[Rfam]
RNA sequence: CCCCUGGUCCGGGCCCCUCUGGCGAAAUUUUCGGCGCUUUCGUGAUGCCGGACCAUUUCC
Numbered sequence: 001c002c003c004c005u006g007g008u009c010c011g012g013g014c015c016c017c018u019c020u021g022g023c024g025a026a027a028u029u030u031u032c033g034g035c036g037c038u039u040u041c042g043u044g045a046u047g048c049c050g051g052a053c054c055a056u057u058u059c060c
Stems, first nucleotide, its partner, number of pairs: 006054007022043006029036001
RNA: terC RNA
Organism: Rhizobium etli